A member of the RNA family "Mammalian CPEB3 ribozyme" from Microcaecilia unicolor, 76 nucleotides long. The organism belongs to Microcaecilia, within Eukaryota. The match comes from Rfam's covariance-model search (39 bits). The base pairs follow the family's consensus structure, which is taken from published work.
[Rfam]
RNA sequence: AGCUGCAGUUCAGGGACUGAAGCAGAAGCAAUGAUUGCAAUUCCUGUCAGAUCCAUAGAAAUCUGUGAAUUCUGCU
Number, nucleotide and partner (000 for none) at each position: 001a000002g000003c000004u000005g000006c000007a000008g000009u000010u000011c000012a000013g044014g043015g042016a041017c000018u039019g000020a000021a076022g075023c074024a073025g072026a071027a070028g038029c037030a036031a000032u000033g000034a000035u000036u030037g029038c028039a018040a000041u016042u015043c014044c013045u000046g000047u000048c065049a064050g063051a062052u061053c000054c000055a000056u000057a000058g000059a000060a000061a052062u051063c050064u049065g048066u000067g000068a000069a000070u027071u026072c025073u024074g023075c022076u021